[Rfam]
Overview
Bacterial large subunit ribosomal RNA: a 380-nucleotide part of an RNA from Finegoldia magna. It is one of the family's seed sequences.
RNA sequence: GAAAAGGGAUGUGAGAAUCAUCCCCGUCGAAAGCCCAAGGAUUCCUGAGCAAGGCUCGUCCUCUCAGGGUAAGUCGGGACCUAAGGCGAGGCCGAAAGGCGUAGUCGAUGGACAACAGGUAGAAAUUCCUGUACUACAAGAUUGUGAUUGAGAGAAGUACUGACGCAGAAGGAAAAGUCGAGCGUGCUGAUGGUUGUGCACGUCCAAAUAACAAGCCAGAAUAUACAGGCAAAUCCGUAUAUUCGUCAACGUAAGUUAUGAUGGGGAGCAGAAAGAUGCGAAGCGACAGAUUCAAACUGCCAAGAAAAGGUGCUAUCGAAUAAUCUUGUACCCGUACCGCAAACCGACACAGGUAGGCAAGAAGAGAAUUCUAAGACGCG
Numbered sequence: 001g002a003a004a005a006g007g008g009a010u011g012u013g014a015g016a017a018u019c020a021u022c023c024c025c026g027u028c029g030a031a032a033g034c035c036c037a038a039g040g041a042u043u044c045c046u047g048a049g050c051a052a053g054g055c056u057c058g059u060c061c062u063c064u065c066a067g068g069g070u071a072a073g074u075c076g077g078g079a080c081c082u083a084a085g086g087c088g089a090g091g092c093c094g095a096a097a098g099g100c101g102u103a104g105u106c107g108a109u110g111g112a113c114a115a116c117a118g119g120u121a122g123a124a125a126u127u128c129c130u131g132u133a134c135u136a137c138a139a140g141a142u143u144g145u146g147a148u149u150g151a152g153a154g155a156a157g158u159a160c161u162g163a164c165g166c167a168g169a170a171g172g173a174a175a176a177g178u179c180g181a182g183c184g185u186g187c188u189g190a191u192g193g194u195u196g197u198g199c200a201c202g203u204c205c206a207a208a209u210a211a212c213a214a215g216c217c218a219g220a221a222u223a224u225a226c227a228g229g230c231a232a233a234u235c236c237g238u239a240u241a242u243u244c245g246u247c248a249a250c251g252u253a254a255g256u257u258a259u260g261a262u263g264g265g266g267a268g269c270a271g272a273a274a275g276a277u278g279c280g281a282a283g284c285g286a287c288a289g290a291u292u293c294a295a296a297c298u299g300c301c302a303a304g305a306a307a308a309g310g311u312g313c314u315a316u317c318g319a320a321u322a323a324u325c326u327u328g329u330a331c332c333c334g335u336a337c338c339g340c341a342a343a344c345c346g347a348c349a350c351a352g353g354u355a356g357g358c359a360a361g362a363a364g365a366g367a368a369u370u371c372u373a374a375g376a377c378g379c380g
Stems, first nucleotide, its partner, number of pairs: 006024006025378004033358003039338002044068006053061002075334004080111002085106003089102001091100003115132005135330011152317002156314006165300004172293002177287004182203006204264002208259004215252002220243007228236002268279003344353002360372004